This 358-nucleotide RNA sequence from Truepera radiovictrix belongs to the Rfam family "transfer-messenger RNA". It scores 176 bits against the family's covariance model. The family's consensus secondary structure is taken from published work. About the family: Bacterial tmRNA, also known as 10Sa RNA or SsrA, is named for its dual tRNA and mRNA-like properties. Its family is annotated with RNA catabolic process in the Gene Ontology. It is annotated as a non-coding RNA gene.
RNA sequence: GGGGGCGACCUGGUUUCGACGGGACUUUCCGCGGACUUGGUAGCGCGUAGAGGGCGCCGUUGGCCUCUUUAAAAAACGGCACCGCCAAUAACUGGCAACAGCAACAGCUACGCACUCGCUGCUUAAUCGCAGCGGCCGUUCGCCCGAAGCCCAGCCGAUGGCUCGCGGGUAGAACGUCCCAAAGUCGGCUAGCCGAAAGCCUCUAGCGCCGGGCUGAGGCGAAAGCAAAGGCGCGUAAGCGCGACCUAGGAGCGGGUCACCGAGCUCGGGUCGCGCCGACAACCGAGCGGUGACUACACGCGUAGAAGCCAGUCUCAGGGGGUUUCGGACGCGGGUUCGACUCCCGCCGCCUCCACCA
Numbered sequence: 001g002g003g004g005g006c007g008a009c010c011u012g013g014u015u016u017c018g019a020c021g022g023g024a025c026u027u028u029c030c031g032c033g034g035a036c037u038u039g040g041u042a043g044c045g046c047g048u049a050g051a052g053g054g055c056g057c058c059g060u061u062g063g064c065c066u067c068u069u070u071a072a073a074a075a076a077c078g079g080c081a082c083c084g085c086c087a088a089u090a091a092c093u094g095g096c097a098a099c100a101g102c103a104a105c106a107g108c109u110a111c112g113c114a115c116u117c118g119c120u121g122c123u124u125a126a127u128c129g130c131a132g133c134g135g136c137c138g139u140u141c142g143c144c145c146g147a148a149g150c151c152c153a154g155c156c157g158a159u160g161g162c163u164c165g166c167g168g169g170u171a172g173a174a175c176g177u178c179c180c181a182a183a184g185u186c187g188g189c190u191a192g193c194c195g196a197a198a199g200c201c202u203c204u205a206g207c208g209c210c211g212g213g214c215u216g217a218g219g220c221g222a223a224a225g226c227a228a229a230g231g232c233g234c235g236u237a238a239g240c241g242c243g244a245c246c247u248a249g250g251a252g253c254g255g256g257u258c259a260c261c262g263a264g265c266u267c268g269g270g271u272c273g274c275g276c277c278g279a280c281a282a283c284c285g286a287g288c289g290g291u292g293a294c295u296a297c298a299c300g301c302g303u304a305g306a307a308g309c310c311a312g313u314c315u316c317a318g319g320g321g322g323u324u325u326c327g328g329a330c331g332c333g334g335g336u337u338c339g340a341c342u343c344c345c346g347c348c349g350c351c352u353c354c355a356c357c358a
Base pairs, nucleotide, nucleotide: 001354002353003352004351005350006349007348020327021326022325023324024323025322026321027320028319029318033315034314035313036312038311039310040309041308044302045301046300047299048298049068050067051066052065053064056080057079058078059077060076061075117134118133119132120131121130122129137176138175139174140173141172143169144168145167146166148163149162150161151160154189155188156187157186158185159184193219194218197215205236210231239276240275241274242273243272244271245270246269247268250267251266252265256294257293258292259291331347332346333345334344335343